[Rfam]
RNA sequence: UCAGGGUCAAUCUUGCGAUAUAGGGACAUACAAUAUUAGAGUAAAAAUUUACUUUACUCUAAUCUGUCUCGGGAAGGUCUGAGAUUAAGUCGGAAUUCACUAUAUCUAGUGAAUUUAAUGCUCUAGAAGGGUAAAUUCCAUCAUUGGAUUGCGGCAAUACCAGAAAACAGCGUGUCAAUGGCAGUAAAUAAUUGUUAAUUUAACAAUUAACCUGGGAAGUUUUCAAUGUUGAUAAACAUUAUUAACAGAGGUUGCCCAUUGAGACGAUGAAAAUAUUCCGCGACUGGCUUAAAGUAGUUUAAUUCGCAAGGCACAAAUAUGUGUAACUCAAUUCAGACUAAUCUGACUCUGA
Numbered sequence: 001u002c003a004g005g006g007u008c009a010a011u012c013u014u015g016c017g018a019u020a021u022a023g024g025g026a027c028a029u030a031c032a033a034u035a036u037u038a039g040a041g042u043a044a045a046a047a048u049u050u051a052c053u054u055u056a057c058u059c060u061a062a063u064c065u066g067u068c069u070c071g072g073g074a075a076g077g078u079c080u081g082a083g084a085u086u087a088a089g090u091c092g093g094a095a096u097u098c099a100c101u102a103u104a105u106c107u108a109g110u111g112a113a114u115u116u117a118a119u120g121c122u123c124u125a126g127a128a129g130g131g132u133a134a135a136u137u138c139c140a141u142c143a144u145u146g147g148a149u150u151g152c153g154g155c156a157a158u159a160c161c162a163g164a165a166a167a168c169a170g171c172g173u174g175u176c177a178a179u180g181g182c183a184g185u186a187a188a189u190a191a192u193u194g195u196u197a198a199u200u201u202a203a204c205a206a207u208u209a210a211c212c213u214g215g216g217a218a219g220u221u222u223u224c225a226a227u228g229u230u231g232a233u234a235a236a237c238a239u240u241a242u243u244a245a246c247a248g249a250g251g252u253u254g255c256c257c258a259u260u261g262a263g264a265c266g267a268u269g270a271a272a273a274u275a276u277u278c279c280g281c282g283a284c285u286g287g288c289u290u291a292a293a294g295u296a297g298u299u300u301a302a303u304u305c306g307c308a309a310g311g312c313a314c315a316a317a318u319a320u321g322u323g324u325a326a327c328u329c330a331a332u333u334c335a336g337a338c339u340a341a342u343c344u345g346a347c348u349c350u351g352a
Base pairs, nucleotide, nucleotide: 001352002351003350004349007346008345009344012310013309014308015307016306017305018304023070024069025068026067027066037056038055039054040053041052042051079336080335081334082333083332088285089284090283091282119133120132121131122130123129135150137148138147139146140145151281152280153279154278156277157276158275171266172265173264311324312323313322314321315320

This 352-nucleotide RNA sequence from Microctonus aethiopoides belongs to the Rfam family "Nuclear RNase P". It scores 104 bits against the family's covariance model. The base pairs follow the family's consensus structure, which is taken from published work. Rfam 15.1 lists 3,848 matches to the family in 1,862 species. It is annotated as a ribozyme.